[Rfam]
RNA sequence: UUCUUAUCAAGAGAAGUUGAGGGGUCUGGCCCUAUGAAGCUUCAGCAACCACUGACAUUGUCGGAAAGGUGCUAAUUCCAGCAAGAUUGAUUCUUGAGAGAUAAGAG
Numbered sequence: 001u002u003c004u005u006a007u008c009a010a011g012a013g014a015a016g017u018u019g020a021g022g023g024g025u026c027u028g029g030c031c032c033u034a035u036g037a038a039g040c041u042u043c044a045g046c047a048a049c050c051a052c053u054g055a056c057a058u059u060g061u062c063g064g065a066a067a068g069g070u071g072c073u074a075a076u077u078c079c080a081g082c083a084a085g086a087u088u089g090a091u092u093c094u095u096g097a098g099a100g101a102u103a104a105g106a107g
Stems, first nucleotide, its partner, number of pairs: 001107008013043005021032003026081004044073004049069002052064003077099001082096005
RNA: SAM riboswitch aptamer (S box leader)
Organism: Oceanobacillus piezotolerans